RNA: F6 TB sRNA
RNA sequence: CGGAUAGCCCCGCGUUGUGGUCUGACCCCGACCCCGGCCGCAGCGCGGGCAAUCCG
Numbered sequence: 001c002g003g004a005u006a007g008c009c010c011c012g013c014g015u016u017g018u019g020g021u022c023u024g025a026c027c028c029c030g031a032c033c034c035c036g037g038c039c040g041c042a043g044c045g046c047g048g049g050c051a052a053u054c055c056g
Base pairs, nucleotide, nucleotide: 002055003054004053005052007050008049010048011047012046013045014044015043016042017041018040019039020038021037022036